RNA: Small nucleolar RNA Z199
RNA sequence: AUGCAGGGGAUGAGAAAAAAAACUGCAACAAGAUGAUCGGAAACUUCCGUGAUUACCUUCAUAUUUAAGUCUCUGAUGCGU
Numbered sequence: 001a002u003g004c005a006g007g008g009g010a011u012g013a014g015a016a017a018a019a020a021a022a023c024u025g026c027a028a029c030a031a032g033a034u035g036a037u038c039g040g041a042a043a044c045u046u047c048c049g050u051g052a053u054u055a056c057c058u059u060c061a062u063a064u065u066u067a068a069g070u071c072u073c074u075g076a077u078g079c080g081u
Stems, first nucleotide, its partner, number of pairs: 001081005038049004